[Rfam]
Nucleotides: 363
Base pairs, nucleotide, nucleotide: 001363002362003361004360009358010357011356012355013354014353015352016351018349019348020347035059036058037057038056039055044049060102061101062100063099064098065097066096067095103107115342116341117340118339120337121336122334123333126140127139128138143178144177145176146175147174148173149172150171151168155164156163157162181329182328183327184326186259187258188257191256192255193252194251195250196249197248200247201246202245206241207240212235213234214233215232218228219227260278261277262276263275264274265273279283289316299315300314301313302312303311304310
Number, partner (000 for none) and nucleotide at each position: 001363c002362g003361a004360g005000c006000g007000a008000a009358u010357c011356c012355u013354g014353g015352u016351c017000a018349a019348g020347g021000a022000a023000c024000u025000c026000g027000g028000c029000a030000a031000a032000u033000u034000g035059c036058u037057c038056c039055c040000g041000u042000g043000c044049c045000u046000u047000c048000g049044g050000c051000a052000u053000a054000a055039g056038g057037g058036a059035g060102a061101c062100c063099c064098c065097c066096g067095a068000u069000g070000g071000u072000g073000a074000a075000c076000g077000u078000c079000c080000u081000c082000g083000c084000g085000g086000c087000g088000g089000g090000a091000g092000c093000u094000u095067u096066u097065g098064g099063g100062g101061g102060u103107g104000g105000c106000a107103c108000a109000g110000g111000c112000c113000a114000g115342g116341g117340g118339g119000u120337a121336g122334c123333g124000a125000c126140u127139g128138u129000u130000u131000a132000c133000c134000a135000a136000a137000a138128a139127c140126a141000c142000a143178g144177g145176u146175g147174c148173a149172u150171g151168c152000c153000a154000a155164g156163a157162c158000g159000u160000a161000a162157g163156u164155c165000g166000c167000c168151g169000u170000a171150u172149a173148u174147g175146c176145a177144c178143u179000g180000a181329c182328g183327c184326c185000u186259g187258c188257c189000c190000g191256g192255u193252g194251c195250c196249g197248g198000a199000a200247g201246g202245u203000u204000a205000a206241g207240a208000g209000g210000a211000u212235c213234c214233g215232u216000c217000a218228g219227c220000c221000u222000u223000u224000g225000u226000g227219g228218u229000g230000a231000a232215g233214c234213g235212g236000u237000g238000a239000a240207u241206u242000c243000a244000a245202g246201c247200c248197c249196c250195g251194g252193u253000a254000a255192a256191c257188g258187g259186c260278g261277g262276u263275g264274g265273u266000a267000a268000c269000u270000a271000u272000a273265a274264c275263c276262a277261u278260c279283c280000u281000a282000a283279g284000g285000u286000a287000g288000c289316g290000a291000a292000a293000u294000u295000c296000c297000u298000u299315g300314u301313c302312g303311g304310g305000u306000a307000a308000g309000u310304u311303c312302c313301g314300a315299c316289c317000u318000g319000c320000a321000c322000g323000a324000a325000u326184g327183g328182c329181g330000u331000a332000a333123c334122g335000a336121c337120u338000u339118c340117c341116c342115c343000g344000c345000u346000g347020u348019c349018u350000c351016g352015a353014c354013c355012a356011g357010g358009a359000g360004c361003u362002c363001g
A member of the RNA family "Bacterial large subunit ribosomal RNA" from Bifidobacterium tsurumiense, 363 nucleotides of a longer RNA.